Record summary:
Guanidine-II riboswitch aptamer (mini-ykkC): a 45-nucleotide RNA sequence from Paraburkholderia panacisoli. Lineage of the source: Bacteria > Pseudomonadati > Pseudomonadota > Betaproteobacteria > Paraburkholderia. The base pairs follow the family's consensus structure, which is taken from published work. The family has 72 seed sequences and 1,589 matches in Rfam 15.1. Simpler in structure and has fewer highly conserved nucleotide positions than the ykkC-yxkD leader. The match comes from Rfam's covariance-model search (38 bits).

RNA sequence: UCGUAAGGACGACCUUACGCUUUUGCUACGAACGGGGACGGCCCC
Number, nucleotide and partner (000 for none) at each position: 001u000002c019003g018004u017005a016006a015007g014008g013009a000010c000011g000012a000013c008014c007015u006016u005017a004018c003019g002020c000021u000022u000023u000024u000025g000026c000027u000028a000029c000030g000031a000032a000033c000034g045035g044036g043037g042038a000039c000040g000041g000042c037043c036044c035045c034